[Rfam]
RNA sequence: GUUCAGAAUACAGUGUUGUCUUUUCCAACCACAUAUCUGAUUGCUCUGCGUGGAAAAUGACUGUUGCUAUGUGACUUUUGGAU
Number, nucleotide and partner (000 for none) at each position: 001g083002u082003u081004c080005a079006g078007a000008a076009u000010a000011c073012a000013g000014u000015g000016u000017u000018g000019u000020c000021u000022u000023u000024u000025c000026c000027a000028a000029c000030c000031a000032c000033a000034u000035a000036u000037c000038u000039g000040a000041u000042u000043g000044c000045u000046c000047u000048g000049c000050g000051u000052g000053g000054a000055a000056a000057a000058u000059g000060a000061c000062u000063g000064u000065u000066g000067c000068u000069a000070u000071g000072u000073g011074a000075c000076u008077u000078u006079u005080g004081g003082a002083u001
RNA: Small nucleolar RNA SNORD121A